[Rfam]
RNA sequence: UCCAUAAAUAAUAAAAGGUAUCUUUAGAUCCUUAACUUUAUUAAUUUAAUUCAAAAAAAAAGUUAAGAUUAAGGACAAAAUUAAUACUGAUUAAAUAAGUUAAUGGAUCAAACUAAUACUAAUUAAAUAAGUUAAAGGAUCAAAAUUUAACGUUUUUUUGGAUUAAAUUAACAGAAAGGAUCAAACCGAUACUUUAAAUAAAGUUAAGGGACUUAAACGGACCUUUUAUUACUUAUGGGA
Dot-bracket structure: .((((((...............(((.(.((((((((((((((.(......................................................................................................................................................).))))))))))))).).).)))...............))))))..
Annotation
The family of this 240-nucleotide RNA sequence from Medicago truncatula is "MIR2655 microRNA precursor family". Taxonomically the source falls in Medicago (Eukaryota, Viridiplantae, Magnoliopsida, Hologalegina). Gene Ontology terms of the family: RISC complex and miRNA-mediated post-transcriptional gene silencing.